[Rfam]
RNA sequence: AUUUUUGCGCUUGGGGCAAUGACGUAGCUAGUGAGGUUUUAACCGAGGCGCGUCUAUUGCUGGUUGAAAACUAUUUCCAAACCCCUUCUUAGGCCUGGGUUCUUCCUUGGCCUUUGAGAAUUUUUGGAAGGGCUCCCUUUGGGGUAAAGUC
Numbered sequence: 001a002u003u004u005u006u007g008c009g010c011u012u013g014g015g016g017c018a019a020u021g022a023c024g025u026a027g028c029u030a031g032u033g034a035g036g037u038u039u040u041a042a043c044c045g046a047g048g049c050g051c052g053u054c055u056a057u058u059g060c061u062g063g064u065u066g067a068a069a070a071c072u073a074u075u076u077c078c079a080a081a082c083c084c085c086u087u088c089u090u091a092g093g094c095c096u097g098g099g100u101u102c103u104u105c106c107u108u109g110g111c112c113u114u115u116g117a118g119a120a121u122u123u124u125u126g127g128a129a130g131g132g133c134u135c136c137c138u139u140u141g142g143g144g145u146a147a148a149g150u151c
Base pairs, nucleotide, nucleotide: 021054022053023052024051025050027049028048029047035044036043037042086118087117088116091113092112093111094110095109097107098106099105131151132150133149134148
Background:
The family of this 151-nucleotide sequence from Hibiscus trionum is "U4 spliceosomal RNA". Rfam classes the family as a spliceosomal small nuclear RNA. A search with the family's covariance model found it, with a score of 108 bits. The family's consensus secondary structure is taken from published work. Taxonomically the source falls in Hibiscus (Eukaryota, Streptophytina, eudicotyledons, Pentapetalae).